[Rfam]
RNA sequence: CGUGCUGUGAGGCACGGGAGAGAGGAAGCAAUAGCGAAAUCGUGGCCCAACGAACAGGAAUAAGGUAGGAAGGCGCUACGAGCGGAUAAGUCGGCUAAAGGCGAUAAAGUCCAAAAGGUAACCGUAAUCUUGUGGCGUAAACCUUAUGGGUAAACGAGGAAAGAGAUAAC
Numbered sequence: 001c002g003u004g005c006u007g008u009g010a011g012g013c014a015c016g017g018g019a020g021a022g023a024g025g026a027a028g029c030a031a032u033a034g035c036g037a038a039a040u041c042g043u044g045g046c047c048c049a050a051c052g053a054a055c056a057g058g059a060a061u062a063a064g065g066u067a068g069g070a071a072g073g074c075g076c077u078a079c080g081a082g083c084g085g086a087u088a089a090g091u092c093g094g095c096u097a098a099a100g101g102c103g104a105u106a107a108a109g110u111c112c113a114a115a116a117g118g119u120a121a122c123c124g125u126a127a128u129c130u131u132g133u134g135g136c137g138u139a140a141a142c143c144u145u146a147u148g149g150g151u152a153a154a155c156g157a158g159g160a161a162a163g164a165g166a167u168a169a170c
Base pairs, nucleotide, nucleotide: 001016002015003014004013005012006011028170031167032166035163040157041156042155043154045151046150047149048148049147061146062145063144064143065142066141073138074137075136077134078133079132080131081130082129084112085111086110087109090105091104092103093102
RNA: Group II catalytic intron D1-D4-3
Organism: Tetragenococcus muriaticus